The record is a 117-nucleotide RNA from Hahella sp. CCB-MM4, which matches "Ribosomal S15 leader" in Rfam. The literature on the family includes a 1996 paper in Biochimie by Benard et al., "Pseudoknot and translational control in the expression of the S15 ribosomal protein". Its family is annotated with regulation of translation, ncRNA-mediated in the Gene Ontology. The source organism's lineage runs through Bacteria, Pseudomonadota, Gammaproteobacteria, Oceanospirillales and Hahella. Rfam describes the family as follows. The E. coli Ribosomal S15 gene 5' UTR can form two alternative structures. One that is a series of three hairpins, The other includes a pseudoknot. This structure causes translational regulation of the S15 protein. The alignment of this family contains only the final two hairpins which are conserved in other species, and also includes the complete region that forms the alternate structures. Its Rfam clan is "Ribosomal Protein S15 Leader clan".
RNA sequence: UGGUCCGGCUGUUAAUAUGCACGGUCGGUACCGAAUUAAUGCAUAUUUGGAGAUAGUAAUAUGGCUUUGUCAGCUGUAGAAAAAGCAGAAAUUCUGAAAGAGUUUCAAACCAAAGAA
Number, nucleotide and partner (000 for none) at each position: 001u000002g000003g000004u000005c000006c000007g026008g025009c024010u023011g022012u021013u000014a000015a000016u000017a000018u000019g000020c000021a012022c011023g010024g009025u008026c007027g000028g000029u000030a000031c000032c000033g000034a000035a000036u000037u000038a000039a000040u000041g000042c000043a000044u000045a000046u000047u000048u069049g068050g067051a066052g065053a000054u000055a000056g000057u000058a000059a000060u000061a000062u000063g000064g000065c052066u051067u050068u049069g048070u000071c000072a000073g000074c000075u000076g000077u000078a000079g000080a000081a000082a000083a000084a000085g000086c000087a000088g000089a000090a000091a000092u000093u000094c000095u000096g000097a000098a000099a000100g000101a000102g000103u000104u000105u000106c000107a000108a000109a000110c000111c000112a000113a000114a000115g000116a000117a000
It scores 41 bits against the family's covariance model.